[Rfam]
RNA: 7SK RNA
RNA sequence: GGAUGUGAGGGCCAUCUGGCUGCAAUAUCUGUCACCCCAUUGAUCGCCAAAUUGGCUGAUCUGGCUGGUGAGGUGGGUGUCUCCUUCCUCCCUCACCACCCCAUGUGUAUCUCUCCAGAAGCUGCUUGCUGGAAGAGAAUGACCUUCCCCGAUAGAGGAGGACCAUUCUUCAGAUAAGGGUCCACAAAUAGCUGCACUCCCCUGGUAGAAGCUCCAAGUAAACACUCAAGGUCCAUUUGUAGGAGAACGUAGGAUAGCAGUCAAGCUUCUAAGACCACAGACAUAUCUAAAUGAGGCAUUGUAUGUGACAGUCUGCCUUUCUUU
Numbered sequence: 001g002g003a004u005g006u007g008a009g010g011g012c013c014a015u016c017u018g019g020c021u022g023c024a025a026u027a028u029c030u031g032u033c034a035c036c037c038c039a040u041u042g043a044u045c046g047c048c049a050a051a052u053u054g055g056c057u058g059a060u061c062u063g064g065c066u067g068g069u070g071a072g073g074u075g076g077g078u079g080u081c082u083c084c085u086u087c088c089u090c091c092c093u094c095a096c097c098a099c100c101c102c103a104u105g106u107g108u109a110u111c112u113c114u115c116c117a118g119a120a121g122c123u124g125c126u127u128g129c130u131g132g133a134a135g136a137g138a139a140u141g142a143c144c145u146u147c148c149c150c151g152a153u154a155g156a157g158g159a160g161g162a163c164c165a166u167u168c169u170u171c172a173g174a175u176a177a178g179g180g181u182c183c184a185c186a187a188a189u190a191g192c193u194g195c196a197c198u199c200c201c202c203u204g205g206u207a208g209a210a211g212c213u214c215c216a217a218g219u220a221a222a223c224a225c226u227c228a229a230g231g232u233c234c235a236u237u238u239g240u241a242g243g244a245g246a247a248c249g250u251a252g253g254a255u256a257g258c259a260g261u262c263a264a265g266c267u268u269c270u271a272a273g274a275c276c277a278c279a280g281a282c283a284u285a286u287c288u289a290a291a292u293g294a295g296g297c298a299u300u301g302u303a304u305g306u307g308a309c310a311g312u313c314u315g316c317c318u319u320u321c322u323u324u
Stems, first nucleotide, its partner, number of pairs: 001102002005096007014086001018084002025080009035068002037064003042061004046056003110161002112158004121129002130152001132150001137148001139146001191266003197260002201253004212245004218240005289324003293319005298312005